[Rfam]
RNA sequence: UGACUACAAAAUAACUUAUUCUGUAGCCACUUUGAGCUACGAUAAUUACUAUGUUAAUUUACGAUAUUAUAGUAACUCCUUACUAAGUGGUGUACUAUAACGUUAUGGUAAACAUCUCCAUGUUUUAUAGUAACCCAACAAUCGUAAAUUAGUAUUGACAUUAUCGUAAAUUAGUAUAUAAAAAUAUCGUAAAUGGAGGUGGCUACAGAAUAACUUGUAGCUG
Numbered sequence: 001u002g003a004c005u006a007c008a009a010a011a012u013a014a015c016u017u018a019u020u021c022u023g024u025a026g027c028c029a030c031u032u033u034g035a036g037c038u039a040c041g042a043u044a045a046u047u048a049c050u051a052u053g054u055u056a057a058u059u060u061a062c063g064a065u066a067u068u069a070u071a072g073u074a075a076c077u078c079c080u081u082a083c084u085a086a087g088u089g090g091u092g093u094a095c096u097a098u099a100a101c102g103u104u105a106u107g108g109u110a111a112a113c114a115u116c117u118c119c120a121u122g123u124u125u126u127a128u129a130g131u132a133a134c135c136c137a138a139c140a141a142u143c144g145u146a147a148a149u150u151a152g153u154a155u156u157g158a159c160a161u162u163a164u165c166g167u168a169a170a171u172u173a174g175u176a177u178a179u180a181a182a183a184a185u186a187u188c189g190u191a192a193a194u195g196g197a198g199g200u201g202g203c204u205a206c207a208g209a210a211u212a213a214c215u216u217g218u219a220g221c222u223g
Base pairs, nucleotide, nucleotide: 001223002222004220005219006218007217008216009215016213017212018211019210020209021208022207023206024205025204026203027202028201029200030199031198032197033196038191039190040189041188042187043186044185046183047182050178051177052176053175054174055173056172057171058170059169060168061167062166066164067163069161070160074155080147081146082145083144087142088141090139091138093132094131095130096129097128098127099126100125102123103122107117108116
This 223-nucleotide RNA from Miscanthus lutarioriparius belongs to the Rfam family "MIR6217 microRNA precursor family". Pairs were carried over by alignment from the consensus structure, which was predicted with RNAalifold. The match comes from Rfam's covariance-model search (158 bits). The family has 2 seed sequences and 2,266 matches in Rfam 15.1.